[Rfam]
RNA sequence: CUCAUAUAAUGAGGCUGCGGAUAACAAAUAGUACCAUGACUGGAAAAGGUGUUACCGCCGAAGCAACUAGAUUUGCUGGGUGUAAAUUGAAUAAAUUUACAACUGUUUCUUAAAACUCGCCUAAAGGUUUAAGAAUUGCGCAUUAUUUGAG
Numbered sequence: 001c002u003c004a005u006a007u008a009a010u011g012a013g014g015c016u017g018c019g020g021a022u023a024a025c026a027a028a029u030a031g032u033a034c035c036a037u038g039a040c041u042g043g044a045a046a047a048g049g050u051g052u053u054a055c056c057g058c059c060g061a062a063g064c065a066a067c068u069a070g071a072u073u074u075g076c077u078g079g080g081u082g083u084a085a086a087u088u089g090a091a092u093a094a095a096u097u098u099a100c101a102a103c104u105g106u107u108u109c110u111u112a113a114a115a116c117u118c119g120c121c122u123a124a125a126g127g128u129u130u131a132a133g134a135a136u137u138g139c140g141c142a143u144u145a146u147u148u149g150a151g
Stems, first nucleotide, its partner, number of pairs: 006146006017058004022054005034043003062077005078104002081101008107135008
RNA: Lysine riboswitch aptamer
Organism: Acholeplasma oculi